Shown here is a 124-nucleotide RNA from Brevibacillus laterosporus, a member of the family "SAM riboswitch aptamer (S box leader)". Taxonomically the source falls in Brevibacillus laterosporus (Bacteria, Bacilli, Caryophanales, Brevibacillus).
[Rfam]
RNA sequence: ACCUUAUCCAGAGACGGUGGAGGGACUGGCCCGAUGAAACCCAGCAACCGACACAUAGCCGCUAACCUGGCAUGUGCACGGUGCUAAUUCCUGCAGAGACAUGUAAAAUUCUGGUAGAUAAGGG
Numbered sequence: 001a002c003c004u005u006a007u008c009c010a011g012a013g014a015c016g017g018u019g020g021a022g023g024g025a026c027u028g029g030c031c032c033g034a035u036g037a038a039a040c041c042c043a044g045c046a047a048c049c050g051a052c053a054c055a056u057a058g059c060c061g062c063u064a065a066c067c068u069g070g071c072a073u074g075u076g077c078a079c080g081g082u083g084c085u086a087a088u089u090c091c092u093g094c095a096g097a098g099a100c101a102u103g104u105a106a107a108a109u110u111c112u113g114g115u116a117g118a119u120a121a122g123g124g
Stems, first nucleotide, its partner, number of pairs: 002123007013042001016041003022032003026093001028091002043085004048081002052076005089116001094113005